[Rfam]
RNA sequence: CCAAUCGUCAAAAUGGUUGUGACGUGUUGUUUACUUUCAUAUCACAGCCAUUUUUGACAAGUUGGA
Numbered sequence: 001c002c003a004a005u006c007g008u009c010a011a012a013a014u015g016g017u018u019g020u021g022a023c024g025u026g027u028u029g030u031u032u033a034c035u036u037u038c039a040u041a042u043c044a045c046a047g048c049c050a051u052u053u054u055u056g057a058c059a060a061g062u063u064g065g066a
Stems, first nucleotide, its partner, number of pairs: 005060001007058007014050009025041003

mir-2 microRNA precursor family: a 66-nucleotide RNA from Fopius arisanus. Rfam links the family to the GO terms RISC complex and miRNA-mediated post-transcriptional gene silencing. Lineage of the source: Eukaryota > Altocrustacea > Endopterygota > Hymenoptera > Fopius. A reference for the family is Lee and Ambros (2001), "An extensive class of small RNAs in Caenorhabditis elegans", Science.